[Rfam]
This 297-nucleotide sequence from Tigriopus californicus belongs to the Rfam family "Metazoan signal recognition particle RNA". A reference for the family is Wild et al. (2002), "Towards the structure of the mammalian signal recognition particle", Curr Opin Struct Biol. About the family: The signal recognition particle (SRP) is a universally conserved ribonucleoprotein. The organism belongs to Tigriopus, within Eukaryota. The family's consensus secondary structure is taken from published work.
RNA sequence: GCUGGGGUCUGUGACGAGCCCUGUAAUCCUGUGUCUGGGAGGCUGGUGUCUGAGGAUGGUUUGAGGUUGGGAAUCCAGCCAAACAUGGUUUCAUGUUGAACUGGUGUCCGCACUAAGCCUGGCGUCAAUAUGGACGCUCUUGGGGAGCCGAGAGUGGCCAGGUUGUCUGAGGAGGUGCGAAUCGGGCCAGGGGGGAAACCCAGCAGCUCAAAGUGCCCGCGGCGGGCAGUAGUGGGAUCGCGCCGGUGAGUGGAUCAUGUGUGGUUGCCAGAUCAAAACAAGCAAACCAGAUACCCU
Numbered sequence: 001g002c003u004g005g006g007g008u009c010u011g012u013g014a015c016g017a018g019c020c021c022u023g024u025a026a027u028c029c030u031g032u033g034u035c036u037g038g039g040a041g042g043c044u045g046g047u048g049u050c051u052g053a054g055g056a057u058g059g060u061u062u063g064a065g066g067u068u069g070g071g072a073a074u075c076c077a078g079c080c081a082a083a084c085a086u087g088g089u090u091u092c093a094u095g096u097u098g099a100a101c102u103g104g105u106g107u108c109c110g111c112a113c114u115a116a117g118c119c120u121g122g123c124g125u126c127a128a129u130a131u132g133g134a135c136g137c138u139c140u141u142g143g144g145g146a147g148c149c150g151a152g153a154g155u156g157g158c159c160a161g162g163u164u165g166u167c168u169g170a171g172g173a174g175g176u177g178c179g180a181a182u183c184g185g186g187c188c189a190g191g192g193g194g195g196a197a198a199c200c201c202a203g204c205a206g207c208u209c210a211a212a213g214u215g216c217c218c219g220c221g222g223c224g225g226g227c228a229g230u231a232g233u234g235g236g237a238u239c240g241c242g243c244c245g246g247u248g249a250g251u252g253g254a255u256c257a258u259g260u261g262u263g264g265u266u267g268c269c270a271g272a273u274c275a276a277a278a279c280a281a282g283c284a285a286a287c288c289a290g291a292u293a294c295c296c297u
Base pairs, nucleotide, nucleotide: 001043002042003041004022005021006020007019009018010017027040028039029038045295046294047293048292049291050290051289052288057284058283060281061280065274066273067272068271070269071268076267077266078265079264080263081262083260084259085258086257087256088255090254091253092252093251094250096248100247101246102245103244104243105242106241107240108236109235111234112233113232114231115230117227118226119225120224121223123221124220125219126165127164128163129162131160132159133158135156136155137154138153139152140151141150142149143148166172167171174217175216176215177214178213184209185208186207187206192201193200194199

A search with the family's covariance model found it, with a score of 230 bits. Clan: SRP clan. Rfam links the family to the GO terms signal recognition particle, endoplasmic reticulum targeting and SRP-dependent cotranslational protein targeting to membrane, signal sequence recognition.